[Rfam]
The family of this 81-nucleotide RNA from Salvelinus namaycush is "mir-196 microRNA precursor family".
The literature on the family includes a 2003 paper in RNA by Lagos-Quintana et al., "New microRNAs from mouse and human".
The match comes from Rfam's covariance-model search (58 bits).
RNA sequence: AGCAUGGUGGUGGCAGCAUCAUGCUGUGGGGAUUUUUUUUCAGAAAAAUUCCCCACAGCAUGAUGCUGCCACCACUAUGCU
Numbered sequence: 001a002g003c004a005u006g007g008u009g010g011u012g013g014c015a016g017c018a019u020c021a022u023g024c025u026g027u028g029g030g031g032a033u034u035u036u037u038u039u040u041c042a043g044a045a046a047a048a049u050u051c052c053c054c055a056c057a058g059c060a061u062g063a064u065g066c067u068g069c070c071a072c073c074a075c076u077a078u079g080c081u
Base pairs, nucleotide, nucleotide: 003079004078005077006076007075008074009073010072011071012070013069014068015067016066017065018064019063022060023059024058025057026056027055028054029053030052031051